[Rfam]
RNA: U12 minor spliceosomal RNA
Organism: Nyctereutes procyonoides
RNA sequence: AUGUCUUAAACCCAUGAGUCAGAAAAACAAUGAUUUGGGGUAAUGCCCAAAUCUUCACUGGUAAUAUGAGUUGAAAUUUUGAGCACGUAAAGGUUGUCCUUCAGGUGACCUGUCUAUAUUGUGGGAUGCCUAGGAGGGUCGAUAUGCCCA
Numbered sequence: 001a002u003g004u005c006u007u008a009a010a011c012c013c014a015u016g017a018g019u020c021a022g023a024a025a026a027a028c029a030a031u032g033a034u035u036u037g038g039g040g041u042a043a044u045g046c047c048c049a050a051a052u053c054u055u056c057a058c059u060g061g062u063a064a065u066a067u068g069a070g071u072u073g074a075a076a077u078u079u080u081g082a083g084c085a086c087g088u089a090a091a092g093g094u095u096g097u098c099c100u101u102c103a104g105g106u107g108a109c110c111u112g113u114c115u116a117u118a119u120u121g122u123g124g125g126a127u128g129c130c131u132a133g134g135a136g137g138g139u140c141g142a143u144a145u146g147c148c149c150a
Base pairs, nucleotide, nucleotide: 004023005022006021008019032053033052034051035050036049037048038047039046054070055069056068057067087147088146091145093143094142095141096140100134101133103131104130105129106128107127109125110124111123112122113121